Bacterial RNase P class A: a 386-nucleotide RNA sequence from Prevotella multiformis.
By type it is a ribozyme.
The family's consensus secondary structure is taken from published work.
Taxonomically the source falls in Prevotella multiformis (Bacteria, Pseudomonadati, Bacteroidota, Prevotella).

[Rfam]
RNA sequence: GCAGUGCCCCGGCUCUGUCGCUGGCAUCUGUAACGGAUGCGAGAGGAAAGUCCGGGCAGCAUAGGGCAUCCUGCUUCCGAAAACAGAAGCUAUUGGUGACAGUAGAUGUAGGCAGAAGAAAACAACCGCCAUCCGGCAGCGGAUGGUAAGGGUGAGAAGGCGGUGUAAGAGACCACCGGCAGGCGGGUGAUCGUCUGGCUGUGCCGUUCAGGAGCUGCAAGUUCAUGUAAACCGUUGUCUGAGGGCUGCCCGCCCGAGCGCAAGCACAACGGAGGGUAGAAUGCUUGAGUUGCAGGGCGACUUGCAAAGUAGAUAAAUGACAGGCAUCUUCCUAUUAUCGAAAGAUGAGGAAGAGACGGAACCCGGCUUACAGGGGCACUGCUUUA
Dot-bracket structure: (((((((((((((.(((((.((.((((((.....)))))).))....[[[.[[[[[((((...[[[[.(((((((((........)))))(((((....)))).)((...((((...........((((((((((....))))))))..)).......((.(((.......))).)).((((((((....))))))).)..))))))..))))))))...((((.......(((((......((((.]]]]))))............)))))......)))).......(((((((....)))))))...........)))))))....................................]]]]]]]].).))))))))))....
Numbered sequence: 001g002c003a004g005u006g007c008c009c010c011g012g013c014u015c016u017g018u019c020g021c022u023g024g025c026a027u028c029u030g031u032a033a034c035g036g037a038u039g040c041g042a043g044a045g046g047a048a049a050g051u052c053c054g055g056g057c058a059g060c061a062u063a064g065g066g067c068a069u070c071c072u073g074c075u076u077c078c079g080a081a082a083a084c085a086g087a088a089g090c091u092a093u094u095g096g097u098g099a100c101a102g103u104a105g106a107u108g109u110a111g112g113c114a115g116a117a118g119a120a121a122a123c124a125a126c127c128g129c130c131a132u133c134c135g136g137c138a139g140c141g142g143a144u145g146g147u148a149a150g151g152g153u154g155a156g157a158a159g160g161c162g163g164u165g166u167a168a169g170a171g172a173c174c175a176c177c178g179g180c181a182g183g184c185g186g187g188u189g190a191u192c193g194u195c196u197g198g199c200u201g202u203g204c205c206g207u208u209c210a211g212g213a214g215c216u217g218c219a220a221g222u223u224c225a226u227g228u229a230a231a232c233c234g235u236u237g238u239c240u241g242a243g244g245g246c247u248g249c250c251c252g253c254c255c256g257a258g259c260g261c262a263a264g265c266a267c268a269a270c271g272g273a274g275g276g277u278a279g280a281a282u283g284c285u286u287g288a289g290u291u292g293c294a295g296g297g298c299g300a301c302u303u304g305c306a307a308a309g310u311a312g313a314u315a316a317a318u319g320a321c322a323g324g325c326a327u328c329u330u331c332c333u334a335u336u337a338u339c340g341a342a343a344g345a346u347g348a349g350g351a352a353g354a355g356a357c358g359g360a361a362c363c364c365g366g367c368u369u370a371c372a373g374g375g376g377c378a379c380u381g382c383u384u385u386a
Stems, first nucleotide, its partner, number of pairs: 001382010011371001012325002015323005021043002024040006048369003052366005057217004064251004069213004073090005091105001092103004106207002111205004126151002128147008159177002162174003179199001180197007221282004232272005243255004290307007